[Rfam]
RNA sequence: AAUGAUGUUGUGAGGCUGACUUGCUUAGGAGCUUGUUCGUGUUCCUAAGCUCUUCACCCUUACAGACACCUUCA
Numbered sequence: 001a002a003u004g005a006u007g008u009u010g011u012g013a014g015g016c017u018g019a020c021u022u023g024c025u026u027a028g029g030a031g032c033u034u035g036u037u038c039g040u041g042u043u044c045c046u047a048a049g050c051u052c053u054u055c056a057c058c059c060u061u062a063c064a065g066a067c068a069c070c071u072u073c074a
Stems, first nucleotide, its partner, number of pairs: 002072001004070001006068003009064007017056003023050010
Shown here is a 74-nucleotide RNA from Haemonchus contortus, a member of the family "mir-5911 microRNA precursor family". Gene Ontology terms of the family: RISC complex and miRNA-mediated post-transcriptional gene silencing.